Shown here is a 76-nucleotide sequence from Roseicitreum antarcticum, a member of the family "Singlet oxygen resistance RNA X".
RNA sequence: AUCGUAACGAGGCGAAGUGAUCUUCGUCUUUACCUCCCUGUUGGACUUUGGCCGAGCUUUUUGCUCGGCCUUUUUU
Numbered sequence: 001a002u003c004g005u006a007a008c009g010a011g012g013c014g015a016a017g018u019g020a021u022c023u024u025c026g027u028c029u030u031u032a033c034c035u036c037c038c039u040g041u042u043g044g045a046c047u048u049u050g051g052c053c054g055a056g057c058u059u060u061u062u063g064c065u066c067g068g069c070c071u072u073u074u075u076u
Base pairs, nucleotide, nucleotide: 009030010029011028012027013026014025050070051069052068053067054066055065056064057063
About this RNA: From the family's description: SorX (RSs2461)like SorY is a singlet oxygen induced sRNA that counteracts oxidative stress by targeting mRNA for a transporter in Rhodobacter. It also has an impact on resistance against organic hydroperoxides. It targets SD sequence of potA mRNA via an aSD sequence. The aSD sequence and some neighbouring nucleotides are identical to the one of SorY (targets takP mRNA). The match comes from Rfam's covariance-model search (48 bits). Rfam links the family to the GO term response to photooxidative stress. On this family, see Peng et al., RNA Biol 2016: "Regulation of a polyamine transporter by the conserved 3' UTR-derived sRNA SorX confers resistance to singlet oxygen and organic hydroperoxides in Rhodobacter sphaeroides". Taxonomically the source falls in Roseicitreum (Bacteria, Alphaproteobacteria, Rhodobacterales, Paracoccaceae). Rfam classes the family as a small RNA.